[Rfam]
RNA sequence: GCACUACUCCCGACGUGACACAACAUCCUGCAGCGAUGUUGUCCGACCUGCCGUGUCACAUGUCGGCGAGCGUGC
Dot-bracket structure: ((((..((.(((((.......((((((.......))))))....(((.......)))....)))))..)).))))
bZIP non canonical Hac1/Xbp1 intron: a 75-nucleotide RNA sequence from [Torrubiella] hemipterigena. A reference for the family is Hooks and Griffiths-Jones (2011), "Conserved RNA structures in the non-canonical Hac1/Xbp1 intron", RNA Biol. About the family: bZIP intron RNA is a non-canonical intron that was first reported in HAC1 gene in yeast and XBP1 gene in Metazoa. A search with the family's covariance model found it, with a score of 44 bits.